[Rfam]
Shown here is a 109-nucleotide RNA sequence from Oryza sativa, a member of the family "MIR1428 microRNA precursor family". Rfam links the family to the GO terms RISC complex and miRNA-mediated post-transcriptional gene silencing. Rfam 15.1 lists 96 matches to the family in 9 species. The source organism's lineage runs through Eukaryota, Embryophyta, Euphyllophyta, Petrosaviidae and Oryza. The family's consensus secondary structure was predicted with RNAalifold. It is one of the family's seed sequences.
RNA sequence: CGCUUUGCGAAUUCACAGGCCCUAUCUUGUGGUAUGAACUGAGUACGCGAUGAUUUAUGGCGCAUAUUGGGGGCUUACCAAAAGAUAAUGCUGUGAAUUUGCAAAGCGC
Number, nucleotide and partner (000 for none) at each position: 001c108002g107003c106004u105005u104006u103007g102008c101009g100010a099011a098012u097013u096014c095015a094016c000017a000018g092019g091020c090021c000022c000023u087024a086025u085026c084027u083028u082029g000030u080031g079032g078033u077034a076035u000036g074037a000038a000039c071040u070041g000042a068043g067044u066045a065046c000047g063048c062049g061050a000051u000052g000053a000054u000055u000056u000057a000058u000059g000060g000061c049062g048063c047064a000065u045066a044067u043068u042069g000070g040071g039072g000073g000074c036075u000076u034077a033078c032079c031080a030081a000082a028083a027084g026085a025086u024087a023088a000089u000090g020091c019092u018093g000094u015095g014096a013097a012098u011099u010100u009101g008102c007103a006104a005105a004106g003107c002108g001109c000